[Rfam]
RNA sequence: CUGACAACGGGCUUUUGUCAUGGUCAAACAGAUCAAACCGCGGCCAUGCGUUGCCAUAAAAUUAAUUGCUUCCGGUGUAAUGCACUCGGCUGCCAUGAUCA
Numbered sequence: 001c002u003g004a005c006a007a008c009g010g011g012c013u014u015u016u017g018u019c020a021u022g023g024u025c026a027a028a029c030a031g032a033u034c035a036a037a038c039c040g041c042g043g044c045c046a047u048g049c050g051u052u053g054c055c056a057u058a059a060a061a062u063u064a065a066u067u068g069c070u071u072c073c074g075g076u077g078u079a080a081u082g083c084a085c086u087c088g089g090c091u092g093c094c095a096u097g098a099u100c101a
Base pairs, nucleotide, nucleotide: 003055005053006052007051008050010025011024012023013022015020032047033046038042063101065099066098067097068093069092072089073088074087075085076084077083